[Rfam]
RNA sequence: UAUUGAAAAAGGCAAACUCAUCGAAAGGUGUGGGCGCAAAGCUACAGGAGCUAAAGCGAUUCAAUCGCCAUGCUAGCCAGCUACCAGU
Numbered sequence: 001u002a003u004u005g006a007a008a009a010a011g012g013c014a015a016a017c018u019c020a021u022c023g024a025a026a027g028g029u030g031u032g033g034g035c036g037c038a039a040a041g042c043u044a045c046a047g048g049a050g051c052u053a054a055a056g057c058g059a060u061u062c063a064a065u066c067g068c069c070a071u072g073c074u075a076g077c078c079a080g081c082u083a084c085c086a087g088u
Stems, first nucleotide, its partner, number of pairs: 012037002017032001019030004040082004047078002049074003056068004
RNA: c-di-GMP-I riboswitch aptamer